[Rfam]
RNA sequence: GCCGCUGACGCGGGAGAGACUGGCGAGAGCCGGCGCCGAAGGAGCAACCGCCCCGGAAACUCUCAGGCCAAAGGACCGCCCGGCUUCG
Number, nucleotide and partner (000 for none) at each position: 001g000002c000003c000004g000005c000006u083007g000008a000009c000010g079011c078012g077013g076014g000015a000016g000017a000018g000019a000020c033021u032022g031023g030024c000025g000026a000027g000028a000029g000030c023031c022032g021033g020034c000035g068036c067037c066038g064039a063040a000041g000042g062043a061044g060045c000046a000047a000048c056049c055050g000051c000052c000053c000054c000055g049056g048057a000058a000059a000060c044061u043062c042063u039064c038065a000066g037067g036068c035069c000070a000071a000072a000073g000074g000075a000076c013077c012078g011079c010080c000081c000082g000083g006084c000085u000086u000087c000088g000
This 88-nucleotide RNA from Gluconacetobacter takamatsuzukensis belongs to the Rfam family "Glycine riboswitch aptamer". Pairs were carried over by alignment from the consensus structure. This family represents the bacterial glycine riboswitch. The match comes from Rfam's covariance-model search (56 bits).